[Rfam]
Shown here is a 73-nucleotide RNA sequence from Drechmeria coniospora, a member of the family "bZIP non canonical Hac1/Xbp1 intron". The family's consensus secondary structure was predicted with RNAfold. From the family's description: bZIP intron RNA is a non-canonical intron that was first reported in HAC1 gene in yeast and XBP1 gene in Metazoa.
RNA sequence: CUCCUCCCCCGACUUGACACAACGUCCUGCAGAGAUGUUGUGCGACCUGCAGUGUCAAACGUCGGCGGAGCUG
Numbered sequence: 001c002u003c004c005u006c007c008c009c010c011g012a013c014u015u016g017a018c019a020c021a022a023c024g025u026c027c028u029g030c031a032g033a034g035a036u037g038u039u040g041u042g043c044g045a046c047c048u049g050c051a052g053u054g055u056c057a058a059a060c061g062u063c064g065g066c067g068g069a070g071c072u073g
Stems, first nucleotide, its partner, number of pairs: 001070004009065005021039006044056003

By type it is a small RNA.